[Rfam]
Shown here is a 47-nucleotide RNA sequence from Catagonus wagneri, a member of the family "Histone 3' UTR stem-loop". NCBI's taxonomy places the organism under Eukaryota, Deuterostomia, Gnathostomata, Sarcopterygii, Catagonus. Pairs were carried over by alignment from the consensus structure, which is taken from published work. The family's RNA type in Rfam is cis-regulatory element.
RNA sequence: CCAAAGGCUCUUUUCAGAGCCACCUAACGUUUUCCCAAGAAAGAGCU
Numbered sequence: 001c002c003a004a005a006g007g008c009u010c011u012u013u014u015c016a017g018a019g020c021c022a023c024c025u026a027a028c029g030u031u032u033u034c035c036c037a038a039g040a041a042a043g044a045g046c047u
Base pairs, nucleotide, nucleotide: 006021007020008019009018010017011016